Acido-Lenti-1 RNA: a 45-nucleotide RNA from Frigoriflavimonas asaccharolytica. By type it is a small RNA. NCBI's taxonomy places the organism under Bacteria, Bacteroidota, Flavobacteriales, Weeksellaceae, Frigoriflavimonas. It scores 38 bits against the family's covariance model.
RNA sequence: CAUCGGGCUUUGCCCGACGCUACUUUAUGUCGCCCUUUCAGGGCU
Numbered sequence: 001c002a003u004c005g006g007g008c009u010u011u012g013c014c015c016g017a018c019g020c021u022a023c024u025u026u027a028u029g030u031c032g033c034c035c036u037u038u039c040a041g042g043g044c045u
Stems, first nucleotide, its partner, number of pairs: 001019001003017006032044005